A member of the RNA family "Small nucleolar RNA Z221/R21b" from Tetracentron sinense, 82 nucleotides long. It is annotated as a C/D-box small nucleolar RNA. A reference for the family is Chen et al. (2003), "The high diversity of snoRNAs in plants: identification and comparative study of 120 snoRNA genes from Oryza sativa", Nucleic Acids Res.
RNA sequence: GGGCUGUGAUGAGUAAGAAUGUCAUGCACCACUCUGAUUUAAUUUGUGCUGAUAAUUGACUCAAAACCAUAGAUCUGAGCUC
Numbered sequence: 001g002g003g004c005u006g007u008g009a010u011g012a013g014u015a016a017g018a019a020u021g022u023c024a025u026g027c028a029c030c031a032c033u034c035u036g037a038u039u040u041a042a043u044u045u046g047u048g049c050u051g052a053u054a055a056u057u058g059a060c061u062c063a064a065a066a067c068c069a070u071a072g073a074u075c076u077g078a079g080c081u082c
Stems, first nucleotide, its partner, number of pairs: 001082004